Alphaproteobacterial sRNA ar9: a 145-nucleotide sequence from Rhizobium sp. NFR07. A search with the family's covariance model found it, with a score of 121 bits. The literature on the family includes a 2012 paper in RNA Biol by del Val et al., "A survey of sRNA families in alpha-proteobacteria".

RNA sequence: AUAAAACAGGCAUGAAGUUCAAAUUCUUGCCAUUCGCGGUCAAAGUCUUGGGAGGAUGAGAUCUCUGGCGCGCUUGUCGCAGCCCCGGCAACGGUGAAGGUCACGCGAAACUGAAAAACAAGGCUUAACCGCCUUGUUUUUUUUU
Numbered sequence: 001a002u003a004a005a006a007c008a009g010g011c012a013u014g015a016a017g018u019u020c021a022a023a024u025u026c027u028u029g030c031c032a033u034u035c036g037c038g039g040u041c042a043a044a045g046u047c048u049u050g051g052g053a054g055g056a057u058g059a060g061a062u063c064u065c066u067g068g069c070g071c072g073c074u075u076g077u078c079g080c081a082g083c084c085c086c087g088g089c090a091a092c093g094g095u096g097a098a099g100g101u102c103a104c105g106c107g108a109a110a111c112u113g114a115a116a117a118a119c120a121a122g123g124c125u126u127a128a129c130c131g132c133c134u135u136g137u138u139u140u141u142u143u144u145u
Stems, first nucleotide, its partner, number of pairs: 003145004011029002014026003035107004045057004060102005067084003070080003085094003117138008